[Rfam]
RNA: Purine riboswitch aptamer
RNA sequence: AAAUAUAAAAUAUAAAAUUUUCGUAUAACCCCAUUAAUAUGGUAUGGGGGUGUCUACCAUGGAACCAUUAAUUCCUGCUUACGAAGAGAAUAUGUCACGUA
Numbered sequence: 001a002a003a004u005a006u007a008a009a010a011u012a013u014a015a016a017a018u019u020u021u022c023g024u025a026u027a028a029c030c031c032c033a034u035u036a037a038u039a040u041g042g043u044a045u046g047g048g049g050g051u052g053u054c055u056a057c058c059a060u061g062g063a064a065c066c067a068u069u070a071a072u073u074c075c076u077g078c079u080u081a082c083g084a085a086g087a088g089a090a091u092a093u094g095u096c097a098c099g100u101a
Base pairs, nucleotide, nucleotide: 018087019086020085021084022083023082024081025080029049030048031047032046033045034044058077059076061075062074063073064072
Dot-bracket structure: .................((((((((...((((((.........))))))........((.((((.......))))))..))))))))..............